Source information
This 134-nucleotide sequence from Hipposideros armiger belongs to the Rfam family "Small nucleolar RNA SNORA58". Rfam classes the family as an H/ACA-box small nucleolar RNA. It scores 146 bits against the family's covariance model. On this family, see Huttenhofer et al., EMBO J 2001: "RNomics: an experimental approach that identifies 201 candidates for novel, small, non-messenger RNAs in mouse". NCBI's taxonomy places the organism under Eukaryota, Tetrapoda, Boreoeutheria, Laurasiatheria, Hipposideros. From the family's description: ACA52 is a member of the H/ACA class of snoRNA that guide the sites of modification of uridines to pseudouridines. Pairs were carried over by alignment from the consensus structure, which was predicted with PFOLD. The family has 20 seed sequences and 471 matches in Rfam 15.1.
[Rfam]
RNA sequence: GGGCAUACCCGUAGACCCUGCCUGACUGUUCAUGGCCAGGCAGGGGGGACAGUGUAUGCAAGAGCCAUUGGGAGUUUGUGCCAGCUCUCGCCAGCUCAUUUGGUGGCUGGAUAAGUGGCAUUACUCCAACAUUC
Numbered sequence: 001g002g003g004c005a006u007a008c009c010c011g012u013a014g015a016c017c018c019u020g021c022c023u024g025a026c027u028g029u030u031c032a033u034g035g036c037c038a039g040g041c042a043g044g045g046g047g048g049a050c051a052g053u054g055u056a057u058g059c060a061a062g063a064g065c066c067a068u069u070g071g072g073a074g075u076u077u078g079u080g081c082c083a084g085c086u087c088u089c090g091c092c093a094g095c096u097c098a099u100u101u102g103g104u105g106g107c108u109g110g111a112u113a114a115g116u117g118g119c120a121u122u123a124c125u126c127c128a129a130c131a132u133u134c
Stems, first nucleotide, its partner, number of pairs: 003059006016045009071127004076123001079120003091110005